[Rfam]
A member of the RNA family "mir-2796 microRNA precursor family" from Brassicogethes aeneus, 76 nucleotides long.
NCBI's taxonomy places the organism under Eukaryota, Metazoa, Bilateria, Neuropteroidea, Brassicogethes.
The family has 6 seed sequences and 119 matches in Rfam 15.1.
It scores 82 bits against the family's covariance model.
RNA sequence: CUAUUGGAGUAGGGGUUUCUUUCGGCCUCCAGCAGAUUUAAGGCUGUAGGCCGGCGGAAACUACUUGCUUUAGUAG
Numbered sequence: 001c002u003a004u005u006g007g008a009g010u011a012g013g014g015g016u017u018u019c020u021u022u023c024g025g026c027c028u029c030c031a032g033c034a035g036a037u038u039u040a041a042g043g044c045u046g047u048a049g050g051c052c053g054g055c056g057g058a059a060a061c062u063a064c065u066u067g068c069u070u071u072a073g074u075a076g
Base pairs, nucleotide, nucleotide: 005072006071007070008069010067011066012065013064014062015061016060017059018058019057020056022054023053024052025051026050027049028048030046031045032044